[Rfam]
RNA sequence: GGCGAUAAACGGCCGAUGUAAUAAACCUUUCGGACCCGGGGGCGGUACCCGGCGCCUCCACCUGGACCCAUCAUCGAGUGUGCGCGAGCGAUGGCUCCAGGCGGGGGCGAAAUAGGAUCGACGAGGGCGUAAAGAUCGGACUUUUGCUCGGCAUGGUACCACCGUUAUCGGGCUGUUUUAUAGUUGCAAACGACAACUAUGCGGAAGCACGUCUCGCUGCGUAA
Numbered sequence: 001g002g003c004g005a006u007a008a009a010c011g012g013c014c015g016a017u018g019u020a021a022u023a024a025a026c027c028u029u030u031c032g033g034a035c036c037c038g039g040g041g042g043c044g045g046u047a048c049c050c051g052g053c054g055c056c057u058c059c060a061c062c063u064g065g066a067c068c069c070a071u072c073a074u075c076g077a078g079u080g081u082g083c084g085c086g087a088g089c090g091a092u093g094g095c096u097c098c099a100g101g102c103g104g105g106g107g108c109g110a111a112a113u114a115g116g117a118u119c120g121a122c123g124a125g126g127g128c129g130u131a132a133a134g135a136u137c138g139g140a141c142u143u144u145u146g147c148u149c150g151g152c153a154u155g156g157u158a159c160c161a162c163c164g165u166u167a168u169c170g171g172g173c174u175g176u177u178u179u180a181u182a183g184u185u186g187c188a189a190a191c192g193a194c195a196a197c198u199a200u201g202c203g204g205a206a207g208c209a210c211g212u213c214u215c216g217c218u219g220c221g222u223a224a
Stems, first nucleotide, its partner, number of pairs: 001148005014138004026127003030124003036052005053109007149164003

The record is a 224-nucleotide RNA from Aurantimonas marianensis, which matches "permuted transfer-messenger RNA" in Rfam. For this family Rfam cites "Phylogenetic analysis of tmRNA secondary structure" (Williams and Bartel, RNA, 1996). NCBI's taxonomy places the organism under Bacteria, Pseudomonadota, Alphaproteobacteria, Hyphomicrobiales, Aurantimonas. A search with the family's covariance model found it, with a score of 138 bits. The base pairs follow the family's consensus structure, which is taken from published work.